[Rfam]
The family of this 56-nucleotide RNA is "Plastid-psbA-3 3UTR RNA". Its Rfam clan is "Plastid-psbA 3UTR RNA clan". For this family Rfam cites "Retrograde signaling in plants: A critical review focusing on the GUN pathway and beyond" (Richter et al., Plant Commun, 2023). Plastid psbA-3 is a non-coding RNA (ncRNA) present in plastids. It was identified in inverted repeat sequences in the 3 prime untranslate region (3UTR) of photosystem II quinone-binding protein (psbA). The base pairs follow the family's consensus structure, which was predicted with LocARNA. The family's RNA type in Rfam is cis-regulatory element.
RNA sequence: UAUGGAGCAAUAAACUUUUUCUUGUUCUAUCAAGAGGGCUUAUUGCUCCUUAUAUU
Numbered sequence: 001u002a003u004g005g006a007g008c009a010a011u012a013a014a015c016u017u018u019u020u021c022u023u024g025u026u027c028u029a030u031c032a033a034g035a036g037g038g039c040u041u042a043u044u045g046c047u048c049c050u051u052a053u054a055u056u
Base pairs, nucleotide, nucleotide: 001052002051004049005048006047007046008045009044010043011042012041013040019036020035021034022033023032024031